[Rfam]
RNA sequence: UGCUCUCUGUCCUGUAUGGCUUUUUAUUCCUAUCUGAUAGUCUCAAGUUUCAUAUAGGGAUGGAAGCCAUGCAAGGCUGGAGCC
Numbered sequence: 001u002g003c004u005c006u007c008u009g010u011c012c013u014g015u016a017u018g019g020c021u022u023u024u025u026a027u028u029c030c031u032a033u034c035u036g037a038u039a040g041u042c043u044c045a046a047g048u049u050u051c052a053u054a055u056a057g058g059g060a061u062g063g064a065a066g067c068c069a070u071g072c073a074a075g076g077c078u079g080g081a082g083c084c
Stems, first nucleotide, its partner, number of pairs: 002083005009077003013073011026061008035052003